[Rfam]
RNA: Selenocysteine insertion sequence 1
Organism: Cyprinodon variegatus
RNA sequence: UUUACUUAAUGAUGAAACUCCUGGAAACCAAUUUGUGUAGGGAGUUUCUGAAGCACAUGUAAA
Numbered sequence: 001u002u003u004a005c006u007u008a009a010u011g012a013u014g015a016a017a018c019u020c021c022u023g024g025a026a027a028c029c030a031a032u033u034u035g036u037g038u039a040g041g042g043a044g045u046u047u048c049u050g051a052a053g054c055a056c057a058u059g060u061a062a063a
Base pairs, nucleotide, nucleotide: 001063002062003061004060005059014048015047016046017045018044019043020042021041022040029037030036